[Rfam]
Nucleotides: 115
Stems, first nucleotide, its partner, number of pairs: 001079004009038001011037006021030002039066003044062003048057002082104009
Number, partner (000 for none) and nucleotide at each position: 001079g002078g003077u004076c005000a006000c007000g008000a009038g010000u011037u012036c013035c014034a015033g016032c017000g018000c019000a020000c021030a022029g023000c024000c025000c026000c027000g028000g029022c030021u031000u032016g033015u034014u035013g036012g037011a038009c039066g040065g041064c042000a043000a044062c045061c046060c047000u048057c049056c050000c051000a052000u053000c054000g055000c056049g057048g058000c059000g060046g061045g062044g063000u064041g065040c066039u067000c068000c069000g070000g071000g072000u073000g074000a075000g076004g077003a078002c079001c080000u081000g082104g083103u084102c085101g086100g087099c088098a089097u090096c091000g092000a093000c094000g095000a096090g097089a098088u099087g100086c101085c102084g103083g104082c105000a106000a107000g108000c109000g110000c111000g112000c113000g114000g115000c

Notes:
A member of the RNA family "SAM (S-adenosyl methionine) riboswitch aptamer" from Nakamurella flava, 115 nucleotides long. For this family Rfam cites "The aptamer core of SAM-IV riboswitches mimics the ligand-binding site of SAM-I riboswitches" (Weinberg et al., RNA, 2008). Taxonomically the source falls in Nakamurella (Bacteria, Actinomycetota, Nakamurellales, Nakamurellaceae). SAM-IV is a mRNA element that regulates gene expression via direct sensing of S-adenosylmethionine (SAM or AdoMet). SAM-IV riboswitches share conserved nucleotide positions with the previously described SAM-I riboswitches sequence analysis and molecular recognition experiments suggest that SAM-I and SAM-IV riboswitches share similar ligand binding sites, but have different scaffolds.